[Rfam]
RNA sequence: AGCAAUAACUAGGGGUGUCCAAUGAGUUGGGCUGAGAGAAAAGCACGUUGAAGCUUUUUGACCCUCAGGACCUGAUCUAGUUCAUACUAGCGUAGGGAAGUUCAUGCAGUUACUA
Numbered sequence: 001a002g003c004a005a006u007a008a009c010u011a012g013g014g015g016u017g018u019c020c021a022a023u024g025a026g027u028u029g030g031g032c033u034g035a036g037a038g039a040a041a042a043g044c045a046c047g048u049u050g051a052a053g054c055u056u057u058u059u060g061a062c063c064c065u066c067a068g069g070a071c072c073u074g075a076u077c078u079a080g081u082u083c084a085u086a087c088u089a090g091c092g093u094a095g096g097g098a099a100g101u102u103c104a105u106g107c108a109g110u111u112a113c114u115a
Stems, first nucleotide, its partner, number of pairs: 007102004011065004017032005039058005071096004077090004
The family of this 115-nucleotide RNA from Evansella cellulosilytica is "TPP riboswitch aptamer (THI element)". Its family is annotated with thiamine pyrophosphate binding in the Gene Ontology. NCBI's taxonomy places the organism under Bacteria, Caryophanales, Bacillaceae, Evansella, Evansella cellulosilytica. A search with the family's covariance model found it, with a score of 75 bits. From the family's description: Vitamin B(1) in its active form thiamin pyrophosphate (TPP) is an essential coenzyme that is synthesised by coupling of pyrimidine and thiazole moieties in bacteria.